[Rfam]
RNA sequence: CGAGGAAGGUCGGGAGAGUUUGACAAUUGCGAUUGUCAACACCGAAGGAGCAAGUUGCCAGCCGCCGAUUGGCAAUGAAUCUCUCAGGUUCCAUAACCGCCAUUCUGAC
Number, nucleotide and partner (000 for none) at each position: 001c000002g000003a000004g000005g000006a104007a103008g000009g101010u000011c099012g098013g097014g000015a000016g000017a000018g000019u000020u039021u038022g037023a036024c000025a000026a000027u000028u000029g000030c000031g000032a000033u000034u000035g000036u023037c022038a021039a020040c000041a089042c088043c087044g085045a084046a000047g000048g083049a082050g081051c000052a000053a000054g076055u075056u074057g073058c072059c071060a070061g069062c000063c000064g000065c000066c000067g000068a000069u061070u060071g059072g058073c057074a056075a055076u054077g000078a000079a000080u000081c050082u049083c048084u045085c044086a000087g043088g042089u041090u000091c000092c000093a000094u000095a000096a000097c013098c012099g011100c000101c009102a000103u007104u006105c000106u000107g000108a000109c000
RNA: Glycine riboswitch aptamer